[Rfam]
This 295-nucleotide RNA from Edwardsiella hoshinae belongs to the Rfam family "Soft rot Enterobacteriaceae Rev 39 5'UTR". About the family: From bacteria cultured under starvation conditions. A search with the family's covariance model found it, with a score of 118 bits. A reference for the family is Kwenda et al. (2016), "Discovery and profiling of small RNAs responsive to stress conditions in the plant pathogen Pectobacterium atrosepticum", BMC Genomics.
RNA sequence: AAAGGUUGUCAGCGCGCGAACUUCUAUGAUAACUCUUUAAGCACUGAGCAACGAAACAACAGAUUUCACUAUUUAUGAGCCUACUCGUCCAAGUGAUUAGCCUAGUCGUGAUUAGCGUGGUGGUGAUUAUUAUCCCACCGUGCGGGGCUGCACUUGGACGAAUAAAGGCUUAAUAAUCAAGCCUGAGUCAGAAAAGAGCCCCCGCACCAUCCGGUUCGGGGGCUCUUUUUUUUCGCUGCGACCGGCCGGGCAGGGAAGUCAGUAAUCAGAAUAAAAUUCUGUAUUUUAGGGCGAU
Numbered sequence: 001a002a003a004g005g006u007u008g009u010c011a012g013c014g015c016g017c018g019a020a021c022u023u024c025u026a027u028g029a030u031a032a033c034u035c036u037u038u039a040a041g042c043a044c045u046g047a048g049c050a051a052c053g054a055a056a057c058a059a060c061a062g063a064u065u066u067c068a069c070u071a072u073u074u075a076u077g078a079g080c081c082u083a084c085u086c087g088u089c090c091a092a093g094u095g096a097u098u099a100g101c102c103u104a105g106u107c108g109u110g111a112u113u114a115g116c117g118u119g120g121u122g123g124u125g126a127u128u129a130u131u132a133u134c135c136c137a138c139c140g141u142g143c144g145g146g147g148c149u150g151c152a153c154u155u156g157g158a159c160g161a162a163u164a165a166a167g168g169c170u171u172a173a174u175a176a177u178c179a180a181g182c183c184u185g186a187g188u189c190a191g192a193a194a195a196g197a198g199c200c201c202c203c204g205c206a207c208c209a210u211c212c213g214g215u216u217c218g219g220g221g222g223c224u225c226u227u228u229u230u231u232u233u234c235g236c237u238g239c240g241a242c243c244g245g246c247c248g249g250g251c252a253g254g255g256a257a258g259u260c261a262g263u264a265a266u267c268a269g270a271a272u273a274a275a276a277u278u279c280u281g282u283a284u285u286u287u288a289g290g291g292c293g294a295u
Stems, first nucleotide, its partner, number of pairs: 005033007016021001038075004085249003089245002100236002104231002107117003119139005125134003140159002143156004160189002167183005193228012206215003250282003254279003258272002